The record is a 435-nucleotide RNA from Phellinidium pouzarii, which matches "Nuclear RNase P" in Rfam.
[Rfam]
RNA sequence: ACAGAUGCAAAGCCGCGAUGCUCGCCACACACUUGGAGCUUUUACGCACCGUUUUUGCGAGCGGGCUAAGGUCUGAGUAUUUAGUCCUCCUAGAUCGACUCCUGCUGGGUCUGACAGCAACCCUGUCGAGAGACGUACCAGAGAUUCUGAUUCUUGCUUGACUUGUCCAGAGAUUUGGUCAGCGCCAAUGAGGGCGGCAGGAACUCUUUGAGAAUCGUCUCGAGGACAGGGCGCAUCUGGCUUGCAUGUAUCUCAACGCGUUCCACGGUCUGCUUCAUUGUCCACGCGGCUGCAACGCGAUGCAGUGUAUGUAUUGACGUUGGAUUUUGGAGAAGGACUUGUUUUGGGGGUCAGCUCUGCAGAUGCGUCCUUCAGUGCACUUCGCGGCUCUUGACUUUGUGUCUUGAAACUCGAUUCAGACUACUCUGCGUCUGU
Numbered sequence: 001a002c003a004g005a006u007g008c009a010a011a012g013c014c015g016c017g018a019u020g021c022u023c024g025c026c027a028c029a030c031a032c033u034u035g036g037a038g039c040u041u042u043u044a045c046g047c048a049c050c051g052u053u054u055u056u057g058c059g060a061g062c063g064g065g066c067u068a069a070g071g072u073c074u075g076a077g078u079a080u081u082u083a084g085u086c087c088u089c090c091u092a093g094a095u096c097g098a099c100u101c102c103u104g105c106u107g108g109g110u111c112u113g114a115c116a117g118c119a120a121c122c123c124u125g126u127c128g129a130g131a132g133a134c135g136u137a138c139c140a141g142a143g144a145u146u147c148u149g150a151u152u153c154u155u156g157c158u159u160g161a162c163u164u165g166u167c168c169a170g171a172g173a174u175u176u177g178g179u180c181a182g183c184g185c186c187a188a189u190g191a192g193g194g195c196g197g198c199a200g201g202a203a204c205u206c207u208u209u210g211a212g213a214a215u216c217g218u219c220u221c222g223a224g225g226a227c228a229g230g231g232c233g234c235a236u237c238u239g240g241c242u243u244g245c246a247u248g249u250a251u252c253u254c255a256a257c258g259c260g261u262u263c264c265a266c267g268g269u270c271u272g273c274u275u276c277a278u279u280g281u282c283c284a285c286g287c288g289g290c291u292g293c294a295a296c297g298c299g300a301u302g303c304a305g306u307g308u309a310u311g312u313a314u315u316g317a318c319g320u321u322g323g324a325u326u327u328u329g330g331a332g333a334a335g336g337a338c339u340u341g342u343u344u345u346g347g348g349g350g351u352c353a354g355c356u357c358u359g360c361a362g363a364u365g366c367g368u369c370c371u372u373c374a375g376u377g378c379a380c381u382u383c384g385c386g387g388c389u390c391u392u393g394a395c396u397u398u399g400u401g402u403c404u405u406g407a408a409a410c411u412c413g414a415u416u417c418a419g420a421c422u423a424c425u426c427u428g429c430g431u432c433u434g435u
Stems, first nucleotide, its partner, number of pairs: 001435004007429003012388007020062005034051003038047002073419005084227004097111005112128006130221006150207001389407002393403003
A search with the family's covariance model found it, with a score of 75 bits. Rfam's curators write: Ribonuclease P (RNase P) is a ubiquitous endoribonuclease, found in archaea, bacteria and eukarya as well as chloroplasts and mitochondria. By type it is a ribozyme.